[Rfam]
RNA sequence: GGCCAGAUGAUCAGGCCUAAAACAGUCAAUCCGCGGCGACUGGUUACGCGCCUAAAACAACCUA
Numbered sequence: 001g002g003c004c005a006g007a008u009g010a011u012c013a014g015g016c017c018u019a020a021a022a023c024a025g026u027c028a029a030u031c032c033g034c035g036g037c038g039a040c041u042g043g044u045u046a047c048g049c050g051c052c053u054a055a056a057a058c059a060a061c062c063u064a
Base pairs, nucleotide, nucleotide: 001017002016003015004014009027010026011025035052036051037050038049
GP20-b RNA: a 64-nucleotide RNA sequence from Hominibacterium faecale. It is annotated as a cis-regulatory element.